[Rfam]
RNA sequence: GACAUCCUUGUCUUGGGGAGCAUAGUGCGCAGUGAUCGUAAAGUGAGAGCACUGAUGCUGACACCCAAAUGUUAUUUUUAAUAACAAAACCCGCGUCCGGCUGCCGUUAGGGAGUCCGAACGCAAUUUUUGAUAAA
Numbered sequence: 001g002a003c004a005u006c007c008u009u010g011u012c013u014u015g016g017g018g019a020g021c022a023u024a025g026u027g028c029g030c031a032g033u034g035a036u037c038g039u040a041a042a043g044u045g046a047g048a049g050c051a052c053u054g055a056u057g058c059u060g061a062c063a064c065c066c067a068a069a070u071g072u073u074a075u076u077u078u079u080a081a082u083a084a085c086a087a088a089a090c091c092c093g094c095g096u097c098c099g100g101c102u103g104c105c106g107u108u109a110g111g112g113a114g115u116c117c118g119a120a121c122g123c124a125a126u127u128u129u130u131g132a133u134a135a136a
Base pairs, nucleotide, nucleotide: 005019006018007017008016009015020058021057022056023055024053025052026051027050028049030047037043093123094122095121096120098118099116100115101114102113104112105111
RNA: U4atac minor spliceosomal RNA
Organism: Papilio xuthus